[Rfam]
RNA sequence: UGUGCCUUGUAGUCAAAUGCCCAGACUCCUGUGGUGGUUGCUUAUGCACCAUGGAUGGUUGAGCAUGUGCUAUACUAUCUA
Numbered sequence: 001u002g003u004g005c006c007u008u009g010u011a012g013u014c015a016a017a018u019g020c021c022c023a024g025a026c027u028c029c030u031g032u033g034g035u036g037g038u039u040g041c042u043u044a045u046g047c048a049c050c051a052u053g054g055a056u057g058g059u060u061g062a063g064c065a066u067g068u069g070c071u072a073u074a075c076u077a078u079c080u081a
Base pairs, nucleotide, nucleotide: 004078008074009073010072011071012070014069015068017066018065019064020063022061023060024059026057027055028054029053034052035051036050037049039048040047041046
Shown here is an 81-nucleotide RNA from Microtus ochrogaster, a member of the family "mir-105 microRNA precursor family".
Lineage of the source: Eukaryota > Opisthokonta > Sarcopterygii > Dipnotetrapodomorpha > Microtus.
Its family is annotated with molecular_function, miRNA-mediated post-transcriptional gene silencing and cellular_component in the Gene Ontology.
For this family Rfam cites "MicroRNA transcriptome in the newborn mouse ovaries determined by massive parallel sequencing" (Ahn et al., Mol Hum Reprod, 2010).
Rfam 15.1 lists 245 matches to the family in 127 species.